[Rfam]
RNA sequence: AAUGUAUGACGCCGUUGACUUUUUUUCCAACGUUUGACCAUUAGUCUUAUUCAAAAAAUUUAUGUAAUUAUCAUUUAUUUUAUUAUGACUUGAUUCAUCAUCAAAUGUUCUUUAAGUAUGACAUAAAUAUUUUCAUAUUUACACAAAAAUUUUGAAUAAAACGAAUGUUCAAACGUUGGUCGAAAAGUUAACGGCUUCGUACAUU
Number, nucleotide and partner (000 for none) at each position: 001a000002a000003u000004g000005u000006a000007u000008g000009a000010c000011g000012c000013c000014g000015u000016u000017g000018a000019c000020u000021u000022u000023u000024u000025u000026u000027c179028c178029a177030a176031c175032g174033u173034u172035u171036g170037a169038c000039c167040a166041u165042u164043a000044g162045u161046c000047u159048u158049a157050u156051u000052c000053a000054a000055a000056a000057a000058a000059u000060u000061u000062a000063u000064g000065u000066a000067a000068u000069u000070a000071u000072c000073a000074u000075u000076u000077a000078u000079u000080u000081u000082a000083u000084u000085a000086u000087g000088a000089c000090u000091u000092g000093a000094u000095u000096c000097a000098u000099c000100a000101u000102c000103a000104a000105a000106u000107g000108u000109u000110c000111u000112u000113u000114a000115a000116g000117u000118a000119u000120g000121a000122c000123a000124u000125a000126a000127a000128u000129a000130u000131u000132u000133u000134c000135a000136u000137a000138u000139u000140u000141a000142c000143a000144c000145a000146a000147a000148a000149a000150u000151u000152u000153u000154g000155a000156a050157u049158a048159a047160a000161a045162c044163g000164a042165a041166u040167g039168u000169u037170c036171a035172a034173a033174c032175g031176u030177u029178g028179g027180u000181c000182g000183a000184a000185a000186a000187g000188u000189u000190a000191a000192c000193g000194g000195c000196u000197u000198c000199g000200u000201a000202c000203a000204u000205u000
The family of this 205-nucleotide RNA sequence from Oryza sativa is "MIR812 microRNA precursor family". Lineage of the source: Eukaryota > Petrosaviidae > Poales > Oryzeae > Oryza sativa. It scores 85 bits against the family's covariance model.